[Rfam]
RNA sequence: GUUUGACACGGUCCGUCGGUCGCCAGUUUGGCGCCCUCCUUCGGACGCGGUGCGAUGAC
Numbered sequence: 001g002u003u004u005g006a007c008a009c010g011g012u013c014c015g016u017c018g019g020u021c022g023c024c025a026g027u028u029u030g031g032c033g034c035c036c037u038c039c040u041u042c043g044g045a046c047g048c049g050g051u052g053c054g055a056u057g058a059c
Stems, first nucleotide, its partner, number of pairs: 007049001009047002012044002015042001018035002021033005
Rfam assigns this 59-nucleotide sequence from Methylobacterium symbioticum to the family "Selenocysteine insertion sequence 3". It is annotated as a cis-regulatory element. The match comes from Rfam's covariance-model search (64 bits). The organism belongs to Methylobacterium, within Bacteria. On this family, see Huttenhofer et al., RNA 1996: "Solution structure of mRNA hairpins promoting selenocysteine incorporation in Escherichia coli and their base-specific interaction with special elongation factor SELB". The base pairs follow the family's consensus structure, which was predicted with CMfinder.